[Rfam]
RNA: Actinobacteria sRNA Ms_IGR-5
Organism: Streptomyces sp. WMMB 714
RNA sequence: ACACGAGAAAGGAGGUGAUCCGGUAGAUGUUGCACACCCGGACGCGUGAGGUGGCUGCGGCCUAGGCCGACGCCACAGUGUGACGCCGGUACGCCGGCCGAUCUCCAGCAGUCACCCGGCCCGUGGGCUCGUCGGACUCGUCCGACCGGCGCCGUUCGCCACCGGCGAGCGGAGCAGCCCGCGGGCCGUCUGCG
Numbered sequence: 001a002c003a004c005g006a007g008a009a010a011g012g013a014g015g016u017g018a019u020c021c022g023g024u025a026g027a028u029g030u031u032g033c034a035c036a037c038c039c040g041g042a043c044g045c046g047u048g049a050g051g052u053g054g055c056u057g058c059g060g061c062c063u064a065g066g067c068c069g070a071c072g073c074c075a076c077a078g079u080g081u082g083a084c085g086c087c088g089g090u091a092c093g094c095c096g097g098c099c100g101a102u103c104u105c106c107a108g109c110a111g112u113c114a115c116c117c118g119g120c121c122c123g124u125g126g127g128c129u130c131g132u133c134g135g136a137c138u139c140g141u142c143c144g145a146c147c148g149g150c151g152c153c154g155u156u157c158g159c160c161a162c163c164g165g166c167g168a169g170c171g172g173a174g175c176a177g178c179c180c181g182c183g184g185g186c187c188g189u190c191u192g193c194g
Stems, first nucleotide, its partner, number of pairs: 015058003019054001060099001062097002065095003069092001070090002117188013131150005